[Rfam]
RNA sequence: UAUGAACAGAUUAAUUUUUAACUUUAGCUUUUUUUUUCACCAUCCGUAACUCGGGAGGCGACUUUAUUGUGAAAAAGCUUAAGUCAAACUAAACCUCCCACUGGGAGGUUUUUUUUU
Numbered sequence: 001u002a003u004g005a006a007c008a009g010a011u012u013a014a015u016u017u018u019u020a021a022c023u024u025u026a027g028c029u030u031u032u033u034u035u036u037u038c039a040c041c042a043u044c045c046g047u048a049a050c051u052c053g054g055g056a057g058g059c060g061a062c063u064u065u066a067u068u069g070u071g072a073a074a075a076a077g078c079u080u081a082a083g084u085c086a087a088a089c090u091a092a093a094c095c096u097c098c099c100a101c102u103g104g105g106a107g108g109u110u111u112u113u114u115u116u117u
Base pairs, nucleotide, nucleotide: 017088018087019086021084022083023082024081026079027078028077029076030075031074032073033072034071038069039068043055044054045053057065058064091111092110093109094108095107096106097105098104099103

A member of the RNA family "Phenylalanine leader peptide" from Pseudoalteromonas piratica, 117 nucleotides long. The organism belongs to Pseudoalteromonas, within Bacteria. A reference for the family is Gurvich et al. (2010), "Two groups of phenylalanine biosynthetic operon leader peptides genes: a high level of apparently incidental frameshifting in decoding Escherichia coli pheL", Nucleic Acids Res. It scores 55 bits against the family's covariance model. Pairs were carried over by alignment from the consensus structure, which was predicted with CMfinder. Rfam classes the family as a cis-regulatory leader. Its family is annotated with cellular amino acid metabolic process in the Gene Ontology.